Shown here is a 61-nucleotide RNA from Corymbia citriodora, a member of the family "Plastid-psbN 5UTR RNA". Rfam 15.1 lists 2,345 matches to the family in 397 species. It is annotated as a cis-regulatory element. Taxonomically the source falls in Corymbia citriodora (Eukaryota, Embryophyta, Mesangiospermae, Myrtaceae). The family's consensus secondary structure was predicted with LocARNA. From the family's description: Plastid psbN is a non-coding RNA (ncRNA) recognised in plastids. It was reported as a conserved 11 stem-loop in the prime untranslated region (5UTR) of psbN genes.

RNA sequence: CGAAAAGCCCAUCAAAUGAGUAGUUCCCCAUUCAAGAGCUACUUUACCAUAUUCUGAAUUA
Numbered sequence: 001c002g003a004a005a006a007g008c009c010c011a012u013c014a015a016a017u018g019a020g021u022a023g024u025u026c027c028c029c030a031u032u033c034a035a036g037a038g039c040u041a042c043u044u045u046a047c048c049a050u051a052u053u054c055u056g057a058a059u060u061a
Stems, first nucleotide, its partner, number of pairs: 018044009